Annotation
The record is a 61-nucleotide RNA from Pseudooceanicola nanhaiensis, which matches "terC RNA" in Rfam. It is annotated as a cis-regulatory element. Pairs were carried over by alignment from the consensus structure, which is taken from published work.
RNA sequence: GGUGGCGACCGGGCCCCUCUGGCAAGAGUCUUGCGGCACUCUUGCGAUGUCGGCGCAGAUG
Numbered sequence: 001g002g003u004g005g006c007g008a009c010c011g012g013g014c015c016c017c018u019c020u021g022g023c024a025a026g027a028g029u030c031u032u033g034c035g036g037c038a039c040u041c042u043u044g045c046g047a048u049g050u051c052g053g054c055g056c057a058g059a060u061g
Stems, first nucleotide, its partner, number of pairs: 006055002009053004022045008